[Rfam]
Nucleotides: 209
Base pairs, nucleotide, nucleotide: 018052020051021050022049023048031043032042033041034040053201054200055199056198063106064105065104066103067098068097069096070095071094072093073092074091075090077088113197114196115195116194117193122187123186124185125184126183127159128158129157132155133154163182164181165180166179167178168177169176170175
Number, partner (000 for none) and nucleotide at each position: 001000g002000a003000g004000a005000a006000c007000u008000a009000a010000c011000a012000a013000u014000c015000c016000g017000a018052g019000a020051g021050g022049u023048g024000g025000a026000a027000u028000g029000a030000c031043g032042g033041g034040g035000u036000a037000a038000c039000g040034c041033c042032c043031u044000g045000a046000a047000a048023c049022g050021c051020c052018c053201c054200c055199u056198u057000a058000a059000u060000a061000c062000u063106c064105c065104g066103a067098c068097u069096g070095g071094c072093g073092g074091g075090u076000g077088a078000a079000a080000a081000u082000g083000a084000a085000a086000a087000c088077u089000g090075a091074c092073c093072u094071g095070u096069c097068a098067g099000a100000a101000g102000c103066u104065c105064g106063g107000u108000g109000a110000a111000g112000u113197c114196g115195g116194c117193u118000g119000a120000g121000a122187g123186c124185a125184g126183c127159c128158g129157u130000a131000u132155g133154g134000a135000u136000u137000g138000c139000u140000g141000g142000a143000u144000a145000a146000u147000u148000a149000c150000c151000a152000g153000c154133c155132c156000c157129a158128c159127g160000a161000a162000a163182g164181c165180u166179g167178u168177c169176c170175a171000g172000a173000g174000g175170u176169g177168g178167a179166c180165g181164g182163u183126g184125c185124u186123g187122c188000c189000u190000a191000u192000a193117g194116g195115c196114c197113g198056g199055a200054g201053g202000u203000c204000u205000a206000c207000a208000a209000a
Rfam assigns this 209-nucleotide sequence from Sporofaciens musculi to the family "Group II catalytic intron D1-D4-5". Lineage of the source: Bacteria > Bacillota > Clostridia > Lachnospirales > Sporofaciens. Rfam's curators write: Group II introns are found in rRNA, tRNA and mRNA of organelles in fungi, plants and protists, and also in mRNA in bacteria. A reference for the family is Bonen and Vogel (2001), "The ins and outs of group II introns", Trends Genet.